[Rfam]
RNA sequence: UUAGAGGAUUUGAAGACCUCAACUUGCAUACUUGGAGAAUUUGAAGACUUCUACUCGCAUACUUGAAGGAUUUGAAGAAUUCUACU
Numbered sequence: 001u002u003a004g005a006g007g008a009u010u011u012g013a014a015g016a017c018c019u020c021a022a023c024u025u026g027c028a029u030a031c032u033u034g035g036a037g038a039a040u041u042u043g044a045a046g047a048c049u050u051c052u053a054c055u056c057g058c059a060u061a062c063u064u065g066a067a068g069g070a071u072u073u074g075a076a077g078a079a080u081u082c083u084a085c086u
Stems, first nucleotide, its partner, number of pairs: 001084001004081002009076006017068001019066003025059003032053001034051004
The record is an 86-nucleotide RNA sequence from Solanum tuberosum, which matches "MIR8024 microRNA precursor family" in Rfam. Pairs were carried over by alignment from the consensus structure, which was predicted with RNAalifold. It scores 80 bits against the family's covariance model. Rfam links the family to the GO terms RISC complex and miRNA-mediated post-transcriptional gene silencing.